[Rfam]
RNA sequence: GGGCCAGCCCAGCCCAGCGGUUCCUUCGAAAACAUUCGCAUUGGCAAUGUUAACUGUUAGCAGUUCGAGCCCCGCGGGCGCUGCCUGGCCUUUUG
Numbered sequence: 001g002g003g004c005c006a007g008c009c010c011a012g013c014c015c016a017g018c019g020g021u022u023c024c025u026u027c028g029a030a031a032a033c034a035u036u037c038g039c040a041u042u043g044g045c046a047a048u049g050u051u052a053a054c055u056g057u058u059a060g061c062a063g064u065u066c067g068a069g070c071c072c073c074g075c076g077g078g079c080g081c082u083g084c085c086u087g088g089c090c091u092u093u094u095g
Stems, first nucleotide, its partner, number of pairs: 002090006012079004017075004025069005
Dot-bracket structure: .((((((....((((.((((....(((((...................................)))))..)))))))).....)))))).....
The record is a 95-nucleotide RNA sequence from Varanus komodoensis, which matches "Vault RNA" in Rfam.
Rfam describes the family as follows. This family of RNAs are found as part of the enigmatic vault ribonucleoprotein complex. The complex consists of a major vault protein (MVP), two minor vault proteins (VPARP and TEP1), and several small untranslated RNA molecules. It has been suggested that the vault complex is involved in drug resistance.
The match comes from Rfam's covariance-model search (70 bits).